[Rfam]
Nucleotides: 150
Base pairs, nucleotide, nucleotide: 003076004075005074006073007072008071011020013018025051026050031044032043033042087141088140089139090138091137099128100127102125103124104122105121106120107119108118
Number, partner (000 for none) and nucleotide at each position: 001000a002000u003076g004075c005074g006073a007072a008071g009000a010000u011020c012000c013018c014000a015000g016000c017000a018013g019000a020011g021000a022000g023000g024000u025051g026050a027000a028000u029000u030000a031044c032043u033042c034000u035000u036000a037000u038000u039000a040000u041000u042033g043032a044031g045000g046000c047000c048000a049000c050026u051025c052000u053000a054000a055000c056000u057000a058000u059000a060000u061000a062000u063000u064000u065000c066000u067000u068000a069000a070000c071008c072007u073006u074005c075004g076003c077000a078000g079000a080000u081000u082000u083000a084000u085000u086000u087141g088140c089139c090138g091137a092000a093000u094000c095000g096000u097000a098000g099128g100127a101000u102125a103124u104122c105121c106120a107119a108118a109000u110000u111000u112000a113000u114000g115000u116000g117000u118108u119107u120106u121105g122104g123000u124103g125102u126000a127100u128099c129000u130000a131000g132000a133000a134000a135000u136000c137091u138090c139089g140088g141087c142000u143000a144000u145000a146000u147000u148000c149000u150000a
Rfam assigns this 150-nucleotide RNA sequence from Cicer arietinum to the family "Small nucleolar RNA snoR145".
Pairs were carried over by alignment from the consensus structure, which was predicted with mfold.
By type it is an H/ACA-box small nucleolar RNA.
Lineage of the source: Eukaryota > eudicotyledons > Fabales > Papilionoideae > Cicer.
Its family is annotated with RNA processing and nucleolus in the Gene Ontology.